Source information: Rfam assigns this 259-nucleotide sequence from candidate division Zixibacteria bacterium RBG-1 to the family "Group I catalytic intron". NCBI's taxonomy places the organism under Bacteria, Pseudomonadati, Candidatus Zixiibacteriota.

RNA sequence: CCGUAACUAUAACGGUUCAAAUUCGUUGUAGCUACCGUGAACGCAAGUUCAUUUAACGAAAGGGCCGUUGAAAAAUCUGGCUAUAUGCUGGAACCUCCGAGUAUCUGACACUACCCCGAUAGUAUCGGGGUGAAAAUGUGUUCAGUGCGGACAAUCAGCAGGGAAGUCCCGUUUUGCGGGAUCCCCCAGAGACUAUACGCCAGACUCCCCGCCAAAGGCGGGGAUGAUGAUAUAGUCCGAACUCCGACGCGAGUCGGAG
Numbered sequence: 001c002c003g004u005a006a007c008u009a010u011a012a013c014g015g016u017u018c019a020a021a022u023u024c025g026u027u028g029u030a031g032c033u034a035c036c037g038u039g040a041a042c043g044c045a046a047g048u049u050c051a052u053u054u055a056a057c058g059a060a061a062g063g064g065c066c067g068u069u070g071a072a073a074a075a076u077c078u079g080g081c082u083a084u085a086u087g088c089u090g091g092a093a094c095c096u097c098c099g100a101g102u103a104u105c106u107g108a109c110a111c112u113a114c115c116c117c118g119a120u121a122g123u124a125u126c127g128g129g130g131u132g133a134a135a136a137u138g139u140g141u142u143c144a145g146u147g148c149g150g151a152c153a154a155u156c157a158g159c160a161g162g163g164a165a166g167u168c169c170c171g172u173u174u175u176g177c178g179g180g181a182u183c184c185c186c187c188a189g190a191g192a193c194u195a196u197a198c199g200c201c202a203g204a205c206u207c208c209c210c211g212c213c214a215a216a217g218g219c220g221g222g223g224a225u226g227a228u229g230a231u232a233u234a235g236u237c238c239g240a241a242c243u244c245c246g247a248c249g250c251g252a253g254u255c256g257g258a259g
Base pairs, nucleotide, nucleotide: 005033007031008030009029010028011027012026013025014024015023037050039048076204077203078202079201081199086160087159088158089157090156091155096151097150098149099148161185167180168179169178189238191237192236193235194234195233206224207223208222209221210220211219212218213217244257245256246255247254248253
Record summary: Rfam's curators write: Group I catalytic introns are large self-splicing ribozymes. They catalyse their own excision from mRNA, tRNA and rRNA precursors in a wide range of organisms. The core secondary structure consists of 9 paired regions (P1-P9).